[Rfam]
RNA sequence: ACAUGAACGCCCACCUCGCCACGCGCUAUGCCGAUGCCGCCCGGAUGGCCUCCGGCAUGACCUCGCGUGCGCGCCGACCGGAGCCCCGCCAUCCUGCUGGGUAACCGGAGCGUUUUUUCUGCGU
Numbered sequence: 001a002c003a004u005g006a007a008c009g010c011c012c013a014c015c016u017c018g019c020c021a022c023g024c025g026c027u028a029u030g031c032c033g034a035u036g037c038c039g040c041c042c043g044g045a046u047g048g049c050c051u052c053c054g055g056c057a058u059g060a061c062c063u064c065g066c067g068u069g070c071g072c073g074c075c076g077a078c079c080g081g082a083g084c085c086c087c088g089c090c091a092u093c094c095u096g097c098u099g100g101g102u103a104a105c106c107g108g109a110g111c112g113u114u115u116u117u118u119c120u121g122c123g124u
Stems, first nucleotide, its partner, number of pairs: 031121001033119002036116001038112003041108002043079002046076004055070005080106002085101004089096001